[Rfam]
RNA sequence: GCUUUUCCCCCUCACCCUUGCUAGCGUCGACUACAGAGAAGCUUGCAGGCUCUGGGGGGGAAGAGC
Numbered sequence: 001g002c003u004u005u006u007c008c009c010c011c012u013c014a015c016c017c018u019u020g021c022u023a024g025c026g027u028c029g030a031c032u033a034c035a036g037a038g039a040a041g042c043u044u045g046c047a048g049g050c051u052c053u054g055g056g057g058g059g060g061a062a063g064a065g066c
Stems, first nucleotide, its partner, number of pairs: 001066004008059004013054002019047002023043003026034002